[Rfam]
RNA sequence: CUAGUUGACGAUGAUGAGGUGGUCUCCUAUAUCCUAAACGGCCUCGAUUUUGAUUACAAUCCAAUUGUUUCAACUAUUCUUGGUUGUGCGGAGCCAAUCUCGUUGAGUGAUCUCUAUUCUCAACUUCUGUCCUAUGAUC
Numbered sequence: 001c002u003a004g005u006u007g008a009c010g011a012u013g014a015u016g017a018g019g020u021g022g023u024c025u026c027c028u029a030u031a032u033c034c035u036a037a038a039c040g041g042c043c044u045c046g047a048u049u050u051u052g053a054u055u056a057c058a059a060u061c062c063a064a065u066u067g068u069u070u071c072a073a074c075u076a077u078u079c080u081u082g083g084u085u086g087u088g089c090g091g092a093g094c095c096a097a098u099c100u101c102g103u104u105g106a107g108u109g110a111u112c113u114c115u116a117u118u119c120u121c122a123a124c125u126u127c128u129g130u131c132c133u134a135u136g137a138u139c
Base pairs, nucleotide, nucleotide: 004138005137006136007135088108089107092104093103
RNA: Small nucleolar RNA Z247
Organism: Panicum virgatum